[Rfam]
RNA sequence: UGUCGUCAAUGACGACCACCAAUGCUCCUGUAGCCUGUGAGGAGCGCCUUCGGGUGGCUACUGUCGCGAAAGCGACCACCAAUGUUCCGUGCAGUCUGUGAGGAACGCCUUCGGGUGACUGCAAAAGAAUUCUCCCGUAGCCUGAAAGGGAGAUCAUUAAUGUGGUACAUC
Numbered sequence: 001u002g003u004c005g006u007c008a009a010u011g012a013c014g015a016c017c018a019c020c021a022a023u024g025c026u027c028c029u030g031u032a033g034c035c036u037g038u039g040a041g042g043a044g045c046g047c048c049u050u051c052g053g054g055u056g057g058c059u060a061c062u063g064u065c066g067c068g069a070a071a072g073c074g075a076c077c078a079c080c081a082a083u084g085u086u087c088c089g090u091g092c093a094g095u096c097u098g099u100g101a102g103g104a105a106c107g108c109c110u111u112c113g114g115g116u117g118a119c120u121g122c123a124a125a126a127g128a129a130u131u132c133u134c135c136c137g138u139a140g141c142c143u144g145a146a147a148g149g150g151a152g153a154u155c156a157u158u159a160a161u162g163u164g165g166u167a168c169a170u171c
Stems, first nucleotide, its partner, number of pairs: 002016006024045005030061006046055003084106005091122006107116003131153005137168003141165002155162002